The record is a 384-nucleotide RNA sequence from Alteribacillus bidgolensis, which matches "Bacterial RNase P class B" in Rfam. It is annotated as a ribozyme. Rfam describes the family as follows. Ribonuclease P (RNase P) is a ubiquitous endoribonuclease, found in archaea, bacteria and eukarya as well as chloroplasts and mitochondria.

[Rfam]
RNA sequence: CAUUCUGGCAGUCGCUGCACAUAUCGUGCAGAGGAAAGUCCAUGCUCGCACAGCCUGAGACGGCUGUAGUGUUCGUGCCUGACGAAACCAUAAGUUAGGGCAGUCUGGUACCUUACUAGGCUGACGGCGGGGAAACGACCUGUGUCGCUAUGAUAUGGUCUUAUUACCCUGAAAGUGCCACAGUGACGUAGUCCGUUUGGAAACAAACGGAGUGGAACGCGGUAAACCCCUCGAGCGAGAAACCCAAAUGUUGGUAGGGGCGCCUUUCUGAAGGAAUAAAACGGAAAGAAAGGGCAGAGUCAAACUCUGCAGAUAGAUGACUGCCUCCGGAGUGCAAGGUGAAAAACCGCAGCAGCACAAUGGAACAGAACAUGGCUUACUAGA
Dot-bracket structure: ...((((((((((.((((((.....))))))....[[[.[[[[[(((((((((((......)))))).....(((.(((((((..........))))))(((((((((((...)))))))))).)((.(((.....((((...(((.....)))..))))......))).....(((((............((((((((....)))))))).........)))..))))).))))))))...(((...........)))...(((((((.................)))))))((((((.....))))))........))))))..(((..((((...................))))..))).......]]]]]]]].).)))